[Rfam]
RNA sequence: CGGCAUCCCCAUUACCUAUGGACACGGUGCCAAAAGCUCUCUUGCGGGAGUUGUCCCCGGAGCUUGCCGAAAGGUUUCCCGUGUCCCG
Numbered sequence: 001c002g003g004c005a006u007c008c009c010c011a012u013u014a015c016c017u018a019u020g021g022a023c024a025c026g027g028u029g030c031c032a033a034a035a036g037c038u039c040u041c042u043u044g045c046g047g048g049a050g051u052u053g054u055c056c057c058c059g060g061a062g063c064u065u066g067c068c069g070a071a072a073g074g075u076u077u078c079c080c081g082u083g084u085c086c087c088g
Base pairs, nucleotide, nucleotide: 002031003030004029005028006027007026009021010020011019012018034065035064036063037062038061039060040059046057047056048055049054
Dot-bracket structure: .((((((.((((.....))))....))))))..(((((((.....((((....)))).))))))).......................